[Rfam]
RNA sequence: CCGUCCGUCCCGUGGGACGGCGUGUCCGCCCGGGCCGGCGGCGGCUACGCUGGCGGCGUGCGCCUCCCCCCGGAGACGCAAAGCCGACAGCCGUCGCACCCCAGGGAGUACUUCCAAUG
Numbered sequence: 001c002c003g004u005c006c007g008u009c010c011c012g013u014g015g016g017a018c019g020g021c022g023u024g025u026c027c028g029c030c031c032g033g034g035c036c037g038g039c040g041g042c043g044g045c046u047a048c049g050c051u052g053g054c055g056g057c058g059u060g061c062g063c064c065u066c067c068c069c070c071c072g073g074a075g076a077c078g079c080a081a082a083g084c085c086g087a088c089a090g091c092c093g094u095c096g097c098a099c100c101c102c103a104g105g106g107a108g109u110a111c112u113u114c115c116a117a118u119g
Stems, first nucleotide, its partner, number of pairs: 059080004064075004083097002086095003
Description
Streptomyces-metH RNA: a 119-nucleotide RNA sequence from Streptomyces somaliensis. Taxonomically the source falls in Streptomyces somaliensis (Bacteria, Actinomycetota, Actinomycetes, Streptomycetaceae). It scores 95 bits against the family's covariance model. It is annotated as a small RNA.